[Rfam]
RNA sequence: GUCUAUCUUCGGGGCAGGGUGAAAUUCCCGAUCGGCGGUAAUGAGAUGGAUUCUCUAAGCCGCGAGCCUGUAUGGGCAGGAUUUGGUGCGAUUCCAAAGCCGACAGUAUAGUCUGGAUGGGAGAAGAUGGAG
Numbered sequence: 001g002u003c004u005a006u007c008u009u010c011g012g013g014g015c016a017g018g019g020u021g022a023a024a025u026u027c028c029c030g031a032u033c034g035g036c037g038g039u040a041a042u043g044a045g046a047u048g049g050a051u052u053c054u055c056u057a058a059g060c061c062g063c064g065a066g067c068c069u070g071u072a073u074g075g076g077c078a079g080g081a082u083u084u085g086g087u088g089c090g091a092u093u094c095c096a097a098a099g100c101c102g103a104c105a106g107u108a109u110a111g112u113c114u115g116g117a118u119g120g121g122a123g124a125a126g127a128u129g130g131a132g
Base pairs, nucleotide, nucleotide: 003130004129005128006127007126008125009124010123017029018028019027031112032111033102034101035063036062037061038060068076082098083097084096085095086094104115105114106113
Notes: The record is a 132-nucleotide sequence from Mesobacillus boroniphilus, which matches "FMN riboswitch aptamer (RFN element)" in Rfam. The organism belongs to Mesobacillus boroniphilus, within Bacteria. The match comes from Rfam's covariance-model search (116 bits).